[Rfam]
RNA sequence: ACCAGUUCCGACGUCAUCCCCCCCCGGCGUCGGGACUUCCCGGCCGGGCUCCGGCGCCACCCCCCCCGGCGCCGGAGCCCGGCUUUUU
Numbered sequence: 001a002c003c004a005g006u007u008c009c010g011a012c013g014u015c016a017u018c019c020c021c022c023c024c025c026g027g028c029g030u031c032g033g034g035a036c037u038u039c040c041c042g043g044c045c046g047g048g049c050u051c052c053g054g055c056g057c058c059a060c061c062c063c064c065c066c067c068g069g070c071g072c073c074g075g076a077g078c079c080c081g082g083c084u085u086u087u088u
Base pairs, nucleotide, nucleotide: 005036006035007034008033009032010031012029013028014027042084043083044082045081046080047079048078049077050076052074053073054072055071056070057069058068